[Rfam]
RNA: L31-Firmicutes ribosomal protein leader
RNA sequence: CUUUAAGUUCGCAAAGAACUUAAGGCGGAAGGAG
Numbered sequence: 001c002u003u004u005a006a007g008u009u010c011g012c013a014a015a016g017a018a019c020u021u022a023a024g025g026c027g028g029a030a031g032g033a034g
Base pairs, nucleotide, nucleotide: 001025002024003023004022005021008018009017010016
Dot-bracket structure: (((((..(((.....)))..))))).........